[Rfam]
RNA sequence: GCCUCUGAGGAUGAUCAUUGUGAAACUUUCGUUCUUCCUAGUAGUUUUAUGCGGAAAAUUUUGGAGACCUGAACUGAAGAGGC
Numbered sequence: 001g002c003c004u005c006u007g008a009g010g011a012u013g014a015u016c017a018u019u020g021u022g023a024a025a026c027u028u029u030c031g032u033u034c035u036u037c038c039u040a041g042u043a044g045u046u047u048u049a050u051g052c053g054g055a056a057a058a059u060u061u062u063g064g065a066g067a068c069c070u071g072a073a074c075u076g077a078a079g080a081g082g083c
Stems, first nucleotide, its partner, number of pairs: 003081004
Shown here is an 83-nucleotide RNA from Punica granatum, a member of the family "Small nucleolar RNA Z159/U59". Pairs were carried over by alignment from the consensus structure, which was predicted with PFOLD. The match comes from Rfam's covariance-model search (61 bits).